RNA sequence: AUAUCCUUUAAAUUAGUCCUGCGAGACUAAAAAGGUGCACAAUACAAGCUAUAAUUAGCUAGAUUAUGCCUUUUUAGUCUCUUACUGCGGUAAGAGACUUUUCUAU
Numbered sequence: 001a002u003a004u005c006c007u008u009u010a011a012a013u014u015a016g017u018c019c020u021g022c023g024a025g026a027c028u029a030a031a032a033a034g035g036u037g038c039a040c041a042a043u044a045c046a047a048g049c050u051a052u053a054a055u056u057a058g059c060u061a062g063a064u065u066a067u068g069c070c071u072u073u074u075u076a077g078u079c080u081c082u083u084a085c086u087g088c089g090g091u092a093a094g095a096g097a098c099u100u101u102u103c104u105a106u
Stems, first nucleotide, its partner, number of pairs: 005035005013030006040068002042065001045062001047060005076099010
This 106-nucleotide RNA from Sporomusaceae bacterium FL31 belongs to the Rfam family "PyrR binding site". From the family's description: This family represents the PyrR binding site and terminator structure. This RNA structure is found upstream of a variety of genes involved in pyrimidine biosynthesis and transport. The alignment also includes a portion of the antiterminator structure. Gene Ontology terms of the family: pyrimidine nucleobase biosynthetic process and pyrimidine nucleobase transport. The family's RNA type in Rfam is cis-regulatory element.